[Rfam]
RNA: SAM (S-adenosyl methionine) riboswitch aptamer
Organism: Pseudoglutamicibacter albus
RNA sequence: AAUCAUGAGUACGGAUUUUUAGGCCCUGGCUAAUCCGUCGGCAACCCUCUCGCGUAGGUGGGGUGCCCCAGGUGACGAUUCGGCCGUCGGGAAUGCCGGCGGCAAGCUGCGCCG
Numbered sequence: 001a002a003u004c005a006u007g008a009g010u011a012c013g014g015a016u017u018u019u020u021a022g023g024c025c026c027u028g029g030c031u032a033a034u035c036c037g038u039c040g041g042c043a044a045c046c047c048u049c050u051c052g053c054g055u056a057g058g059u060g061g062g063g064u065g066c067c068c069c070a071g072g073u074g075a076c077g078a079u080u081c082g083g084c085c086g087u088c089g090g091g092a093a094u095g096c097c098g099g100c101g102g103c104a105a106g107c108u109g110c111g112c113c114g
Stems, first nucleotide, its partner, number of pairs: 001080004009039001011038006022031002040067003045063003049058002083103008